Nucleotides: 286
Base pairs, nucleotide, nucleotide: 005142006141008139009138010137011136013134014133015132016131017130020044021043022042025039026038027037028036029035048055049054063092064091065090066089067088070084071083072082094125095124096122097121098120099118100117101116105112106111145284146283148281152274153273154272155271156270157269161250162249163248164247165246166245167244168243169242170241171240172238174206175205176204177203181198182197183196184195185194186193187192210235211234212233213232215231216230218229219228252262253261
Number, partner (000 for none) and nucleotide at each position: 001000g002000a003000g004000u005142c006141u007000a008139a009138c010137a011136u012000c013134u014133a015132c016131g017130c018000g019000a020044g021043u022042g023000u024000u025039c026038g027037g028036g029035u030000g031000u032000c033000a034000a035029a036028c037027c038026c039025g040000u041000a042022c043021g044020c045000g046000c047000a048055g049054u050000g051000a052000a053000a054049g055048c056000g057000a058000a059000c060000g061000g062000a063092g064091g065090u066089g067088g068000g069000a070084g071083c072082c073000c074000c075000c076000u077000c078000g079000c080000g081000g082072g083071g084070c085000g086000c087000a088067c089066c090065a091064u092063c093000g094125a095124c096122c097121g098120a099118u100117c101116c102000u103000g104000a105112u106111g107000u108000c109000u110000u111106c112105g113000g114000a115000u116101g117100g118099a119000u120098u121097u122096g123000a124095g125094u126000a127000a128000g129000a130017g131016c132015g133014u134013a135000a136011a137010u138009g139008u140000g141006g142005g143000g144000a145284c146283c147000c148281g149000a150000a151000a152274g153273a154272u155271g156270g157269u158000g159000a160000a161250c162249u163248a164247u165246g166245c167244c168243u169242g170241a171240a172238u173000a174206g175205g176204g177203c178000g179000a180000a181198g182197c183196c184195a185194g186193a187192g188000g189000a190000a191000a192187c193186u194185c195184u196183g197182g198181u199000g200000g201000a202000g203177g204176c205175u206174c207000g208000c209000a210235g211234c212233g213232g214000u215231u216230c217000u218229g219228a220000c221000g222000u223000g224000c225000a226000a227000a228219u229218c230216g231215a232213u233212c234211g235210u236000c237000a238172a239000a240171u241170u242169u243168g244167g245166g246165u247164a248163u249162a250161g251000g252262g253261g254000c255000g256000a257000a258000a259000g260000a261253c262252u263000a264000a265000u266000c267000g268000a269157a270156c271155c272154a273153u274152c275000u276000a277000g278000u279000a280000g281148c282000u283146g284145g285000u286000u
The record is a 286-nucleotide part of an RNA from Aspergillus bombycis, which matches "Eukaryotic large subunit ribosomal RNA" in Rfam. Pairs were carried over by alignment from the consensus structure, which is taken from published work. It scores 3331 bits against the family's covariance model. The organism belongs to Aspergillus, within Eukaryota. Its family is annotated with structural constituent of ribosome and ribosome in the Gene Ontology.